The record is a 402-nucleotide RNA sequence from Fuscibacter oryzae, which matches "Bacterial RNase P class A" in Rfam. The base pairs follow the family's consensus structure, which is taken from published work. The source organism's lineage runs through Bacteria, Pseudomonadota, Alphaproteobacteria, Rhodobacterales and Fuscibacter. Rfam classes the family as a ribozyme.
[Rfam]
RNA sequence: GCGGAUGGCUGGAUGACCGCGGGGCGAAUGCCUCGAGGAAAGUCCGGACUCCAUGAGGUAAGGGUGCCGGGUAACGCCCGGCGGGGGCAACCCCAGGGAAAGCGCCACAGAGAAGAGUCUGCCCUGCAUGCAGGGUGAUGGUGAAACGGUGGGGUAAGAGCCCACCGCGGACCGGGCAACCGGGACGGCACGGCAAGCCCCACCCGGAGCAAUGCCGAAUAGGGACCUUGCGCGGAAAGGUCUGCGACUGCCGAAAGGCGAUGGCAGAGACCUCCGCAGGGACACUUCAGCCCAGAGGUCCGGGUUGGCAGCUUGACCGCCGUGGCAACACGAGCGGCAGAGGAAUGGUCAUCCAGGGGGGAAACCCCCGGACAGAAUCCGGCUUACAGGCCAUCCGCGCAA
Numbered sequence: 001g002c003g004g005a006u007g008g009c010u011g012g013a014u015g016a017c018c019g020c021g022g023g024g025c026g027a028a029u030g031c032c033u034c035g036a037g038g039a040a041a042g043u044c045c046g047g048a049c050u051c052c053a054u055g056a057g058g059u060a061a062g063g064g065u066g067c068c069g070g071g072u073a074a075c076g077c078c079c080g081g082c083g084g085g086g087g088c089a090a091c092c093c094c095a096g097g098g099a100a101a102g103c104g105c106c107a108c109a110g111a112g113a114a115g116a117g118u119c120u121g122c123c124c125u126g127c128a129u130g131c132a133g134g135g136u137g138a139u140g141g142u143g144a145a146a147c148g149g150u151g152g153g154g155u156a157a158g159a160g161c162c163c164a165c166c167g168c169g170g171a172c173c174g175g176g177c178a179a180c181c182g183g184g185a186c187g188g189c190a191c192g193g194c195a196a197g198c199c200c201c202a203c204c205c206g207g208a209g210c211a212a213u214g215c216c217g218a219a220u221a222g223g224g225a226c227c228u229u230g231c232g233c234g235g236a237a238a239g240g241u242c243u244g245c246g247a248c249u250g251c252c253g254a255a256a257g258g259c260g261a262u263g264g265c266a267g268a269g270a271c272c273u274c275c276g277c278a279g280g281g282a283c284a285c286u287u288c289a290g291c292c293c294a295g296a297g298g299u300c301c302g303g304g305u306u307g308g309c310a311g312c313u314u315g316a317c318c319g320c321c322g323u324g325g326c327a328a329c330a331c332g333a334g335c336g337g338c339a340g341a342g343g344a345a346u347g348g349u350c351a352u353c354c355a356g357g358g359g360g361g362a363a364a365c366c367c368c369c370g371g372a373c374a375g376a377a378u379c380c381g382g383c384u385u386a387c388a389g390g391c392c393a394u395c396c397g398c399g400c401a402a
Base pairs, nucleotide, nucleotide: 001398002397003396004395005394006393007392008391009390010389011387012353013352014351015350016349017348018347020035021034022033023032024031025030040385041384042383044382045381046380047379048378049209050208051207052206057288058287062205063204064203065202066201067081068080069079070078071077082096083094084093085092086091097200098199102198103197104194105193106192119140121136122135123134124133125132126131148166149165150164151163152162153161167189168187169186172183173182174181175180213310214309215308216307223301224300225299226298227297228296280293281292283290317336321332322331323330324329